[Rfam]
RNA sequence: UAAAUAUCAAGAGAGCGACGAGGGAUACUGGUCCUACGACUCGCCGGCAACCGAAUGGAAACAUCACGGUGCUACUUCCAGCCUGAACGCAGUUCAGGAAGAUAUUUC
Numbered sequence: 001u002a003a004a005u006a007u008c009a010a011g012a013g014a015g016c017g018a019c020g021a022g023g024g025a026u027a028c029u030g031g032u033c034c035u036a037c038g039a040c041u042c043g044c045c046g047g048c049a050a051c052c053g054a055a056u057g058g059a060a061a062c063a064u065c066a067c068g069g070u071g072c073u074a075c076u077u078c079c080a081g082c083c084u085g086a087a088c089g090c091a092g093u094u095c096a097g098g099a100a101g102a103u104a105u106u107u108c
Stems, first nucleotide, its partner, number of pairs: 002107007013045001015044004022034003028081004046073004051069002053065002077100001082098006
Shown here is a 108-nucleotide RNA sequence from a Chloroflexota bacterium, a member of the family "SAM riboswitch aptamer (S box leader)". It scores 61 bits against the family's covariance model. The family's consensus secondary structure is taken from published work. Rfam links the family to the GO term regulation of gene expression.